Rfam assigns this 76-nucleotide RNA from Marmota monax to the family "mir-1290 microRNA precursor family". A search with the family's covariance model found it, with a score of 86 bits. The family's consensus secondary structure was predicted with RNAalifold.
[Rfam]
RNA sequence: GGGCAUUAUAUUGGCACUCAAAAAGUUUCAGAUUUUGGAACAUUUCAGAUUUUAGAUUUUUGGAUCAGGGAUGCUC
Number, nucleotide and partner (000 for none) at each position: 001g076002g075003g074004c073005a072006u071007u070008a000009u000010a000011u068012u067013g066014g065015c000016a000017c000018u063019c062020a061021a060022a059023a058024a057025g000026u000027u056028u055029c000030a053031g052032a051033u000034u049035u048036u047037g046038g045039a044040a000041c000042a000043u000044u039045u038046c037047a036048g035049a034050u000051u032052u031053u030054a000055g028056a027057u024058u023059u022060u021061u020062g019063g018064a000065u014066c013067a012068g011069g000070g007071a006072u005073g004074c003075u002076c001